Description:
RT-7 RNA: a 191-nucleotide RNA sequence. It is annotated as a small RNA. Rfam's curators put it in the seed alignment.
RNA sequence: AUCGGAAUCGCGUAAGUCAAGGCUUACGUGAGCGUGUCUUGUAAAUUCAGUAACCCACUGACGGUGUAAAACCAUCGCGGCAAGCCUGCGUGCGAAGCUGUGUUGCCGUUAGUUAUUGACAAAAAAUCCAUGCGGUGAGUUCGCUCUUAUGCAGCGUCCGACCGUAUGUUUAACAGAGCGGUUACUUCUCC
Number, nucleotide and partner (000 for none) at each position: 001a037002u036003c000004g000005g000006a000007a000008u031009c030010g029011c028012g027013u026014a025015a024016g023017u000018c000019a000020a000021g000022g000023c016024u015025u014026a013027c012028g011029u010030g009031a008032g000033c000034g000035u000036g002037u001038c000039u000040u000041g000042u000043a000044a000045a000046u000047u000048c000049a186050g185051u184052a183053a182054c181055c180056c000057a113058c112059u111060g110061a109062c108063g107064g106065u000066g000067u000068a000069a000070a000071a000072c000073c000074a000075u000076c102077g101078c100079g099080g098081c097082a000083a000084g093085c092086c000087u000088g000089c000090g000091u000092g085093c084094g000095a000096a000097g081098c080099u079100g078101u077102g076103u000104u000105g000106c064107c063108g062109u061110u060111a059112g058113u057114u000115a000116u000117u000118g000119a000120c000121a000122a000123a000124a000125a000126a000127u000128c000129c168130a167131u166132g165133c164134g163135g162136u161137g000138a000139g000140u000141u000142c000143g155144c154145u153146c000147u000148u000149a000150u000151g000152c000153a145154g144155c143156g000157u000158c000159c000160g000161a136162c135163c134164g133165u132166a131167u130168g129169u000170u000171u000172a000173a000174c000175a000176g000177a000178g000179c000180g055181g054182u053183u052184a051185c050186u049187u000188c000189u000190c000191c000